[Rfam]
RNA: U4atac minor spliceosomal RNA
RNA sequence: ACUAUCCUUAUCUUGGGGUUGCGCUACUGUUCAAUGAACGUAUAGUGAGAACAGUACUGCUAACACCGGCACAACACAUGCGCGCCCACUGAAGCUUCGGCUUUGUGAUGUGGUGCAAUUUUUGGAACC
Numbered sequence: 001a002c003u004a005u006c007c008u009u010a011u012c013u014u015g016g017g018g019u020u021g022c023g024c025u026a027c028u029g030u031u032c033a034a035u036g037a038a039c040g041u042a043u044a045g046u047g048a049g050a051a052c053a054g055u056a057c058u059g060c061u062a063a064c065a066c067c068g069g070c071a072c073a074a075c076a077c078a079u080g081c082g083c084g085c086c087c088a089c090u091g092a093a094g095c096u097u098c099g100g101c102u103u104u105g106u107g108a109u110g111u112g113g114u115g116c117a118a119u120u121u122u123u124g125g126a127a128c129c
Base pairs, nucleotide, nucleotide: 006018007017008016009015021060022059023058026055027054028053029052030051031050032049038046039045082116083115084114085113086112087110090105091104092103093102094101095100